[Rfam]
RNA sequence: CUGUGCAGGCCCUUCCGCUCCCCUGCCCCCAGGCCAAUUAGUUCCUGGGGGCAGGGGAGCACACAAAACUUUCUCCUGCCCUGGGAGGAGCAUGCGGCACUUCAAAGUGCUAUGUGCUCCUCCAAGGGCUGGAGAAGACAUC
Numbered sequence: 001c002u003g004u005g006c007a008g009g010c011c012c013u014u015c016c017g018c019u020c021c022c023c024u025g026c027c028c029c030c031a032g033g034c035c036a037a038u039u040a041g042u043u044c045c046u047g048g049g050g051g052c053a054g055g056g057g058a059g060c061a062c063a064c065a066a067a068a069c070u071u072u073c074u075c076c077u078g079c080c081c082u083g084g085g086a087g088g089a090g091c092a093u094g095c096g097g098c099a100c101u102u103c104a105a106a107g108u109g110c111u112a113u114g115u116g117c118u119c120c121u122c123c124a125a126g127g128g129c130u131g132g133a134g135a136a137g138a139c140a141u142c
Base pairs, nucleotide, nucleotide: 002063003062004061005060006059010056011055025052026051027050028049029048030047031046032045033044070137071136072135073134074133075132078129079128080127081126084123085122086121087120088119089118090117091116092115093114094113
RNA: Small Cajal body specific RNA 11
Organism: Pelodiscus sinensis